Shown here is a 130-nucleotide RNA sequence from Salarias fasciatus, a member of the family "Small nucleolar RNA SNORA68".
The family has 26 seed sequences and 1,079 matches in Rfam 15.1.
A search with the family's covariance model found it, with a score of 67 bits.
Its family is annotated with nucleolus and RNA processing in the Gene Ontology.
From the family's description: U68 is a member of the H/ACA class of small nucleolar RNAs (snoRNAs) which act as guides in the the modification of uridines to pseudouridines.
A reference for the family is Ganot et al. (1997), "The family of box ACA small nucleolar RNAs is defined by an evolutionarily conserved secondary structure and ubiquitous sequence elements essential for RNA accumulation", Genes Dev.
The base pairs follow the family's consensus structure, which was predicted with PFOLD.
[Rfam]
RNA sequence: UCUGCAGCCUAACCCAAAGGCCUCACCCUGCUGGUGGUGGGAUCUUGUCAGGCCUGCGAACAGAAACGACCCUCGUCGCCUUUCUCUGCUGCUGCCGUGCCUCUGAAAGUGAAUUCGAGGGUCCACACUC
Dot-bracket structure: ..(((((.(.........((.((((((........)))))).)).......).))))).........(((((((.....(((((...((.........))....))))).......))))))).......
Numbered sequence: 001u002c003u004g005c006a007g008c009c010u011a012a013c014c015c016a017a018a019g020g021c022c023u024c025a026c027c028c029u030g031c032u033g034g035u036g037g038u039g040g041g042a043u044c045u046u047g048u049c050a051g052g053c054c055u056g057c058g059a060a061c062a063g064a065a066a067c068g069a070c071c072c073u074c075g076u077c078g079c080c081u082u083u084c085u086c087u088g089c090u091g092c093u094g095c096c097g098u099g100c101c102u103c104u105g106a107a108a109g110u111g112a113a114u115u116c117g118a119g120g121g122u123c124c125a126c127a128c129u130c
Stems, first nucleotide, its partner, number of pairs: 003058005009052001019044002022041006068123007080109005088100002
NCBI's taxonomy places the organism under Eukaryota, Actinopterygii, Blenniimorphae, Blenniidae, Salarias.